[Rfam]
The family of this 86-nucleotide sequence is "Glycine riboswitch aptamer".

RNA sequence: GGACAGAACUCCGGAGAGAGUCGAAAGACCGCCGAAGGGGCAAGGGGUGACCCGAAUCUCUCAGGCAAAAGGACGGAGCCGGUGAU
Numbered sequence: 001g002g003a004c005a006g007a008a009c010u011c012c013g014g015a016g017a018g019a020g021u022c023g024a025a026a027g028a029c030c031g032c033c034g035a036a037g038g039g040g041c042a043a044g045g046g047g048u049g050a051c052c053c054g055a056a057u058c059u060c061u062c063a064g065g066c067a068a069a070a071g072g073a074c075g076g077a078g079c080c081g082g083u084g085a086u
Base pairs, nucleotide, nucleotide: 009078010077011076012075013074020029021028022027031066032065033064034062035061038060039059040058044053045052
It scores 64 bits against the family's covariance model.